[Rfam]
RNA: Streptomyces RNA 2736
RNA sequence: CGCCCGGCCGGAUCCCGUGGGGGGAAUCCGCACCGGGACAUGGGAAGGCGCCCCGAUCUACGGC
Numbered sequence: 001c002g003c004c005c006g007g008c009c010g011g012a013u014c015c016c017g018u019g020g021g022g023g024g025a026a027u028c029c030g031c032a033c034c035g036g037g038a039c040a041u042g043g044g045a046a047g048g049c050g051c052c053c054c055g056a057u058c059u060a061c062g063g064c
Stems, first nucleotide, its partner, number of pairs: 001062002003037005009030005014024003042053003